[Rfam]
RNA sequence: CAGCCUGAAGUGAUGAGCUCAGUUCAUGUCUCUUCUCUGAGAUGUACCCUGGAGAUACUGCAAACACUCUGAUCAGGCAG
Numbered sequence: 001c002a003g004c005c006u007g008a009a010g011u012g013a014u015g016a017g018c019u020c021a022g023u024u025c026a027u028g029u030c031u032c033u034u035c036u037c038u039g040a041g042a043u044g045u046a047c048c049c050u051g052g053a054g055a056u057a058c059u060g061c062a063a064a065c066a067c068u069c070u071g072a073u074c075a076g077g078c079a080g
Stems, first nucleotide, its partner, number of pairs: 001080001003078003
The family of this 80-nucleotide RNA from Lepidothrix coronata is "Small nucleolar RNA SNORD111".
Rfam links the family to the GO terms RNA processing and nucleolus.
Rfam 15.1 lists 894 matches to the family in 541 species.
For this family Rfam cites "Purified box C/D snoRNPs are able to reproduce site-specific 2'-O-methylation of target RNA in vitro" (Galardi et al., Mol Cell Biol, 2002).
NCBI's taxonomy places the organism under Eukaryota, Craniata, Gnathostomata, Sarcopterygii, Lepidothrix.
The match comes from Rfam's covariance-model search (52 bits).